[Rfam]
RNA sequence: AUUGUAAGAGGUCGGAAAGGGUUCCCGACACACCUGUUUUACAGGUACCUGAGAUGAUAGAGUGCCGCCUAUCCUUACAAU
Numbered sequence: 001a002u003u004g005u006a007a008g009a010g011g012u013c014g015g016a017a018a019g020g021g022u023u024c025c026c027g028a029c030a031c032a033c034c035u036g037u038u039u040u041a042c043a044g045g046u047a048c049c050u051g052a053g054a055u056g057a058u059a060g061a062g063u064g065c066c067g068c069c070u071a072u073c074c075u076u077a078c079a080a081u
Stems, first nucleotide, its partner, number of pairs: 001081008011029005020066003031051001032046006056073005
This 81-nucleotide sequence from Massiliimalia timonensis belongs to the Rfam family "skipping-rope RNA". The family's RNA type in Rfam is small RNA.